Shown here is a 171-nucleotide RNA sequence from Candidatus Uabimicrobium amorphum, a member of the family "Group II catalytic intron D1-D4-3". The pairing is the family consensus, mapped onto this sequence. It scores 140 bits against the family's covariance model.
RNA sequence: AUAACCGUGAGGAAAUGUUUGAAGGAAGCGUGUGGCAAAUUUGUGACCUGACGAACAGAAACUGGAUAAUAGGCAUACCAUGUCGGACGAGUGGGCACAUGACCACGAAGUCCAUAUCCAUCAAGGACAUGGGUUGUAAAUUCAGCAGGUGUGCAAAGAAAGUGAUCAAAC
Numbered sequence: 001a002u003a004a005c006c007g008u009g010a011g012g013a014a015a016u017g018u019u020u021g022a023a024g025g026a027a028g029c030g031u032g033u034g035g036c037a038a039a040u041u042u043g044u045g046a047c048c049u050g051a052c053g054a055a056c057a058g059a060a061a062c063u064g065g066a067u068a069a070u071a072g073g074c075a076u077a078c079c080a081u082g083u084c085g086g087a088c089g090a091g092u093g094g095g096c097a098c099a100u101g102a103c104c105a106c107g108a109a110g111u112c113c114a115u116a117u118c119c120a121u122c123a124a125g126g127a128c129a130u131g132g133g134u135u136g137u138a139a140a141u142u143c144a145g146c147a148g149g150u151g152u153g154c155a156a157a158g159a160a161a162g163u164g165a166u167c168a169a170a171c
Base pairs, nucleotide, nucleotide: 001016002015005012006011028171031168032167035163036162040157041156042155043154044153045152046150047149048148049147050146062145063144064143065142066141067140073137074136075135078132079131080130081129082128083127085113086112087111088110091106092105093104094103